[Rfam]
RNA sequence: ACUUCUGUUGUGAUAAACAGGGUCCAGUGAUAUUAAGCCCCGUAAUUCGGGGUUUUUUAUUAUCUGAAAUAUGACCAUUCAGGUGUUAACUGGGCUUUAGUGCCCUUUUUUU
Numbered sequence: 001a002c003u004u005c006u007g008u009u010g011u012g013a014u015a016a017a018c019a020g021g022g023u024c025c026a027g028u029g030a031u032a033u034u035a036a037g038c039c040c041c042g043u044a045a046u047u048c049g050g051g052g053u054u055u056u057u058u059a060u061u062a063u064c065u066g067a068a069a070u071a072u073g074a075c076c077a078u079u080c081a082g083g084u085g086u087u088a089a090c091u092g093g094g095c096u097u098u099a100g101u102g103c104c105c106u107u108u109u110u111u112u
Stems, first nucleotide, its partner, number of pairs: 035055008092105004
Dot-bracket structure: ..................................((((((((.....))))))))....................................((((......)))).......
This 112-nucleotide sequence from Photobacterium damselae belongs to the Rfam family "Gammaprotebacteria rimP leader". The match comes from Rfam's covariance-model search (81 bits). It is annotated as a cis-regulatory leader. The base pairs follow the family's consensus structure, which is taken from published work. The source organism's lineage runs through Bacteria, Gammaproteobacteria, Vibrionaceae, Photobacterium and Photobacterium damselae subsp. damselae. Its family is annotated with regulation of gene expression in the Gene Ontology.